This 408-nucleotide RNA from Roseovarius sp. A46 belongs to the Rfam family "Bacterial RNase P class A". By type it is a ribozyme. Rfam's curators write: Ribonuclease P (RNase P) is a ubiquitous endoribonuclease, found in archaea, bacteria and eukarya as well as chloroplasts and mitochondria. Pairs were carried over by alignment from the consensus structure, which is taken from published work. NCBI's taxonomy places the organism under Bacteria, Pseudomonadota, Rhodobacterales, Roseobacteraceae, Roseovarius.
[Rfam]
RNA sequence: GCGGAGGGCCGGAUGGCCGCGACACCCCGGCAACGGGGUGGCGAGGAAAGUCCGGACUCCACAAGACGACGGUGCCGGGUAACGCCCGGCCGGGGCAACCCGAGGGAAAGCGCCACAGAAAACAGACCGCCCCGGUUACGACCGUGGCAAGGGUGAAACGGUGGGGUAAGAGCCCACCGCGGGACGGGCAACCGGACCGGCACGGCAAGCCCCACCGGGAGCAAUGCCGAAUAGGGACCGCGCGCGGGGCAGGUCGGGCAACCGAUACCGCCCGCAGGCCACGUCUUGGCCCGGCGGUCCGGGUAGGCAGCUAGAGGCGCGCGGGCAACCGCGCGUCGAGACGAAUGGUCAUCCGAAGGGGGCCCCGCGCCCCCGGGACAGAAUCCGGCUUACAGGCCCUCCGCGCGC
Numbered sequence: 001g002c003g004g005a006g007g008g009c010c011g012g013a014u015g016g017c018c019g020c021g022a023c024a025c026c027c028c029g030g031c032a033a034c035g036g037g038g039u040g041g042c043g044a045g046g047a048a049a050g051u052c053c054g055g056a057c058u059c060c061a062c063a064a065g066a067c068g069a070c071g072g073u074g075c076c077g078g079g080u081a082a083c084g085c086c087c088g089g090c091c092g093g094g095g096c097a098a099c100c101c102g103a104g105g106g107a108a109a110g111c112g113c114c115a116c117a118g119a120a121a122a123c124a125g126a127c128c129g130c131c132c133c134g135g136u137u138a139c140g141a142c143c144g145u146g147g148c149a150a151g152g153g154u155g156a157a158a159c160g161g162u163g164g165g166g167u168a169a170g171a172g173c174c175c176a177c178c179g180c181g182g183g184a185c186g187g188g189c190a191a192c193c194g195g196a197c198c199g200g201c202a203c204g205g206c207a208a209g210c211c212c213c214a215c216c217g218g219g220a221g222c223a224a225u226g227c228c229g230a231a232u233a234g235g236g237a238c239c240g241c242g243c244g245c246g247g248g249g250c251a252g253g254u255c256g257g258g259c260a261a262c263c264g265a266u267a268c269c270g271c272c273c274g275c276a277g278g279c280c281a282c283g284u285c286u287u288g289g290c291c292c293g294g295c296g297g298u299c300c301g302g303g304u305a306g307g308c309a310g311c312u313a314g315a316g317g318c319g320c321g322c323g324g325g326c327a328a329c330c331g332c333g334c335g336u337c338g339a340g341a342c343g344a345a346u347g348g349u350c351a352u353c354c355g356a357a358g359g360g361g362g363c364c365c366c367g368c369g370c371c372c373c374c375g376g377g378a379c380a381g382a383a384u385c386c387g388g389c390u391u392a393c394a395g396g397c398c399c400u401c402c403g404c405g406c407g408c
Stems, first nucleotide, its partner, number of pairs: 001404010011393001012353007020043002023040006048391003052388005057221004065286001070217005075089005090104001091102004105212002110210002112206003127152002129148003133144004160178006179201001180199003185194003225309004235300006277291005317336008